[Rfam]
RNA sequence: GAACGAAGUUUUGUAUCGUCUCGUAUAUAUUCGGGGAUUGGCCCGAACGUUUCUACCCGAAAACCACAAUUUUCGGACUACGAGCAUUGGUGGCGCACGC
Numbered sequence: 001g002a003a004c005g006a007a008g009u010u011u012u013g014u015a016u017c018g019u020c021u022c023g024u025a026u027a028u029a030u031u032c033g034g035g036g037a038u039u040g041g042c043c044c045g046a047a048c049g050u051u052u053c054u055a056c057c058c059g060a061a062a063a064c065c066a067c068a069a070u071u072u073u074c075g076g077a078c079u080a081c082g083a084g085c086a087u088u089g090g091u092g093g094c095g096c097a098c099g100c
Base pairs, nucleotide, nucleotide: 020084021083022082023081024080025079030047031046032045033044034043035042057076058075059074060073061072062071063070
RNA: Purine riboswitch aptamer
Organism: Paenibacillus protaetiae